[Rfam]
RNA: carA ncRNA motif
RNA sequence: GAUUUAUCCCCUAUUUUCAUUUGUGGCAGAUGCGACAAAUGGGGUCAAACACCCCCGGUAAGGUAUAAUUUCUUAGUUAAAUUAUUAGAUACUUGCCCUAGCGCUUAAAGACACAUAUACCUCCCGAAAAUUCUCAGACCGGAGGUGUCUUUUCCGGAUGAGGGAUGUGUCGGAUGGCAGCAGGGCUUUGGAGAAUACCUUUGCUGCCA
Number, nucleotide and partner (000 for none) at each position: 001g000002a000003u000004u000005u000006a000007u000008c000009c000010c000011c000012u032013a031014u000015u029016u028017u000018c026019a000020u000021u000022u000023g000024u000025g000026g018027c000028a016029g015030a000031u013032g012033c000034g046035a045036c044037a000038a000039a000040u000041g000042g000043g000044g036045u035046c034047a000048a000049a000050c000051a000052c000053c000054c000055c000056c000057g000058g000059u000060a000061a074062g073063g072064u000065a070066u000067a000068a000069u000070u065071u000072c063073u062074u061075a000076g000077u000078u000079a000080a000081a000082u000083u000084a000085u000086u000087a000088g000089a000090u000091a000092c000093u000094u000095g000096c000097c185098c183099u182100a000101g000102c000103g181104c180105u179106u177107a000108a000109a000110g171111a170112c169113a000114c167115a166116u165117a000118u000119a000120c000121c000122u000123c000124c157125c156126g000127a153128a152129a151130a150131u000132u000133c000134u000135c145136a000137g000138a000139c000140c000141g000142g000143a000144g000145g135146u000147g000148u000149c000150u130151u129152u128153u127154c000155c000156g125157g124158a000159u000160g000161a000162g000163g000164g000165a116166u115167g114168u000169g112170u111171c110172g000173g000174a000175u000176g000177g106178c000179a105180g104181c103182a099183g098184g000185g097186c000187u000188u000189u000190g000191g000192a000193g000194a000195a000196u000197a000198c000199c000200u000201u000202u000203g000204c000205u000206g000207c000208c000209a000